Source information:
This 94-nucleotide sequence from Brevibacillus sp. WF146 belongs to the Rfam family "Glycine riboswitch aptamer". Gene Ontology term of the family: glycine biosynthetic process. The match comes from Rfam's covariance-model search (67 bits).
[Rfam]
Nucleotides: 094
Stems, first nucleotide, its partner, number of pairs: 006089005012084003021035004037074003040070002044068003050061002
Number, partner (000 for none) and nucleotide at each position: 001000a002000u003000g004000a005000u006089a007088g008087u009086a010085g011000a012084a013083g014082g015000g016000a017000g018000a019000g020000a021035c022034u023033g024032u025000c026000u027000u028000u029000c030000g031000g032024a033023c034022a035021g036000c037074g038073c039072c040070g041069a042000a043000g044068g045067a046066g047000c048000a049000a050061g051060c052000c053000g054000g055000c056000a057000g058000c059000g060051g061050u062000g063000a064000a065000u066046c067045u068044c069041u070040c071000a072039g073038g074037c075000a076000a077000a078000a079000g080000u081000a082014c083013c084012u085010c086009u087008a088007c089006u090000u091000g092000a093000c094000g